[Rfam]
RNA sequence: UAAAAGGGCCUUUGCCGUGAGUGGCACAUAGUUCCCUGUGGGAGCUGUGCGGAAUCGCAAUCUAGAGAUUUCGGAGGUAUAAUUUCUGAGAUAGGGGUAGCUAGUGUUCAUUAACCUGGUGCCCCA
Numbered sequence: 001u002a003a004a005a006g007g008g009c010c011u012u013u014g015c016c017g018u019g020a021g022u023g024g025c026a027c028a029u030a031g032u033u034c035c036c037u038g039u040g041g042g043a044g045c046u047g048u049g050c051g052g053a054a055u056c057g058c059a060a061u062c063u064a065g066a067g068a069u070u071u072c073g074g075a076g077g078u079a080u081a082a083u084u085u086c087u088g089a090g091a092u093a094g095g096g097g098u099a100g101c102u103a104g105u106g107u108u109c110a111u112u113a114a115c116c117u118g119g120u121g122c123c124c125c126a
Base pairs, nucleotide, nucleotide: 008078009077010076011075012074013026014025015024016023017022027049028048029047030046031045032044033043034042035041050073051072052071053070054069055068056067095124096123097122098121100120101119102118103117104116106115107114108113
Dot-bracket structure: .......((((((((((....)))))(((((((((.....)))))))))(((((((..........))))))))))))................((((.(((((.(((....))))))))))))..